The family of this 75-nucleotide sequence from Ectocarpus sp. CCAP 1310/34 is "Small nucleolar RNA SNORD24". It is annotated as a C/D-box small nucleolar RNA. The family's consensus secondary structure was predicted with PFOLD.
RNA sequence: UAUCGAUGAUGCAACGUAUAUUUGCUACUCUCGACCGUCGGGAUGACGACAGUAACCACCAAGAUCGCUGAGAUA
Numbered sequence: 001u002a003u004c005g006a007u008g009a010u011g012c013a014a015c016g017u018a019u020a021u022u023u024g025c026u027a028c029u030c031u032c033g034a035c036c037g038u039c040g041g042g043a044u045g046a047c048g049a050c051a052g053u054a055a056c057c058a059c060c061a062a063g064a065u066c067g068c069u070g071a072g073a074u075a
Base pairs, nucleotide, nucleotide: 001075002074003073004072
Dot-bracket structure: ((((...................................................................))))
The match comes from Rfam's covariance-model search (63 bits).